This 132-nucleotide RNA from Sorex araneus belongs to the Rfam family "Small nucleolar RNA SNORA48". By type it is an H/ACA-box small nucleolar RNA. The sequence is in the family's curated seed alignment. Rfam's curators write: The snoRNA ACA 48 has been identified to guide pseudouridylation of the residue U3797 in the 28S rRNA subunit. The family has 24 seed sequences and 2,109 matches in Rfam 15.1. NCBI's taxonomy places the organism under Eukaryota, Metazoa, Chordata, Eulipotyphla, Sorex. Gene Ontology terms of the family: nucleolus and RNA processing. A reference for the family is Ofengand and Bakin (1997), "Mapping to nucleotide resolution of pseudouridine residues in large subunit ribosomal RNAs from representative eukaryotes, prokaryotes, archaebacteria, mitochondria and chloroplasts", J Mol Biol.
RNA sequence: UGCCUCUGUGCUUGAUAGAGAGGAAUCUGGUCAGUGGUACCCAUCUCCUAGCCAGGGACAAAGCAAUUUCUUUCUUUUUCCAGAGUGGCUUUUGGUCUGUGCCCUUACCUGGUUCAUGUGCUAUGAGUAGUA
Numbered sequence: 001u002g003c004c005u006c007u008g009u010g011c012u013u014g015a016u017a018g019a020g021a022g023g024a025a026u027c028u029g030g031u032c033a034g035u036g037g038u039a040c041c042c043a044u045c046u047c048c049u050a051g052c053c054a055g056g057g058a059c060a061a062a063g064c065a066a067u068u069u070c071u072u073u074c075u076u077u078u079u080c081c082a083g084a085g086u087g088g089c090u091u092u093u094g095g096u097c098u099g100u101g102c103c104c105u106u107a108c109c110u111g112g113u114u115c116a117u118g119u120g121c122u123a124u125g126a127g128u129a130g131u132a
Stems, first nucleotide, its partner, number of pairs: 001060002004057005011051002014048001018047003022041002025038003072127003076123001088119002093116003097112003101108001